[Rfam]
RNA sequence: UUCUUAUCAAGAGAGGUCAAGGGACUAGCCCGUAGACGCCUCAGCAACCUGUUUGUGAAGACAAGGUGCUACUUCUAGCAAGUUUAGUUAAACUUGAGAGAUAAGAA
Numbered sequence: 001u002u003c004u005u006a007u008c009a010a011g012a013g014a015g016g017u018c019a020a021g022g023g024a025c026u027a028g029c030c031c032g033u034a035g036a037c038g039c040c041u042c043a044g045c046a047a048c049c050u051g052u053u054u055g056u057g058a059a060g061a062c063a064a065g066g067u068g069c070u071a072c073u074u075c076u077a078g079c080a081a082g083u084u085u086a087g088u089u090a091a092a093c094u095u096g097a098g099a100g101a102u103a104a105g106a107a
Base pairs, nucleotide, nucleotide: 001107002106003105004104005103006102007101008100013042014041015040016039017038021031022030023029025078026077027076028075043070044069045068046067048066049065050063051062052061053060074099079096080095081094082093083092084091
Record summary: A member of the RNA family "SAM riboswitch aptamer (S box leader)" from Virgibacillus salexigens, 107 nucleotides long. The match comes from Rfam's covariance-model search (88 bits). Lineage of the source: Bacteria > Bacillota > Bacilli > Bacillaceae > Virgibacillus.